[Rfam]
RNA: Plastid-atpF group II-D1 intron
RNA sequence: UAAAAUUUAUCUGAUAUAGAACACUCAUAUUGAUAAAAUGGUUUGAACUAUUU
Numbered sequence: 001u002a003a004a005a006u007u008u009a010u011c012u013g014a015u016a017u018a019g020a021a022c023a024c025u026c027a028u029a030u031u032g033a034u035a036a037a038a039u040g041g042u043u044u045g046a047a048c049u050a051u052u053u
Base pairs, nucleotide, nucleotide: 012032013031014030015029016028017027